RNA sequence: GGUUUCCGUUGGUGCAAAUCCAAUCAACUCCGUUUUAAAUUUAAGAUGAGAAAGAAUUCUCCAUUGAUAGCAAAUGAUAUCCAUUAAGCAGGGGAAAUACUAUU
Numbered sequence: 001g002g003u004u005u006c007c008g009u010u011g012g013u014g015c016a017a018a019u020c021c022a023a024u025c026a027a028c029u030c031c032g033u034u035u036u037a038a039a040u041u042u043a044a045g046a047u048g049a050g051a052a053a054g055a056a057u058u059c060u061c062c063a064u065u066g067a068u069a070g071c072a073a074a075u076g077a078u079a080u081c082c083a084u085u086a087a088g089c090a091g092g093g094g095a096a097a098u099a100c101u102a103u104u
Stems, first nucleotide, its partner, number of pairs: 009023004059093003063084002066081004
Notes
Plastid-rps12 3UTR RNA: a 104-nucleotide RNA sequence from Pyrus pyrifolia. It is annotated as a cis-regulatory element. Plastid rpl20 is a non-coding RNA (ncRNA) recognised in plastids. It was found in the three prime untranslated region (3UTR) of rps12 gene, its 3UTR location sugest a role in transcript maduration. Lineage of the source: Eukaryota > Tracheophyta > Gunneridae > rosids > Pyrus. For this family Rfam cites "Retrograde signaling in plants: A critical review focusing on the GUN pathway and beyond" (Richter et al., Plant Commun, 2023).